Record summary
This 88-nucleotide sequence from Paenibacillus sp. Leaf72 belongs to the Rfam family "BsrC". A reference for the family is Saito et al. (2008), "Novel small RNA-encoding genes in the intergenic regions of Bacillus subtilis", Gene. The 301 nucleotide sequence from Kouji Nakamura has been trimmed to a highly conserved ~85 nucleotide long core to form this family. It is annotated as a small RNA. The source organism's lineage runs through Bacteria, Bacilli, Caryophanales, Paenibacillaceae and Paenibacillus.
RNA sequence: UAACUCCAAAACAACGGAAGCCCUACCUCUCUUCCAUCCUUGCGGCUCCUAGACCGCGCCAGUGUGAAUCAAAGCUCGUACAGCACGA
Numbered sequence: 001u002a003a004c005u006c007c008a009a010a011a012c013a014a015c016g017g018a019a020g021c022c023c024u025a026c027c028u029c030u031c032u033u034c035c036a037u038c039c040u041u042g043c044g045g046c047u048c049c050u051a052g053a054c055c056g057c058g059c060c061a062g063u064g065u066g067a068a069u070c071a072a073a074g075c076u077c078g079u080a081c082a083g084c085a086c087g088a
Stems, first nucleotide, its partner, number of pairs: 035066002039062002041058005047052001